TPP riboswitch aptamer (THI element): a 106-nucleotide RNA from Bacillus cytotoxicus. Lineage of the source: Bacteria > Bacillota > Bacilli > Bacillaceae > Bacillus cytotoxicus.
[Rfam]
RNA sequence: UCUAUCCACUAGGGGUGCCGAUAUUGGCUGAGAUUAAAGUUUAUCUUUGAGACCCUUAGUACCUGAUCUGGUUCGUACCAGCGUAGGGAAGUGGAAAUGACAAAAU
Numbered sequence: 001u002c003u004a005u006c007c008a009c010u011a012g013g014g015g016u017g018c019c020g021a022u023a024u025u026g027g028c029u030g031a032g033a034u035u036a037a038a039g040u041u042u043a044u045c046u047u048u049g050a051g052a053c054c055c056u057u058a059g060u061a062c063c064u065g066a067u068c069u070g071g072u073u074c075g076u077a078c079c080a081g082c083g084u085a086g087g088g089a090a091g092u093g094g095a096a097a098u099g100a101c102a103a104a105a106u
Stems, first nucleotide, its partner, number of pairs: 006094005011056004016050001017028004035049005062087004068081004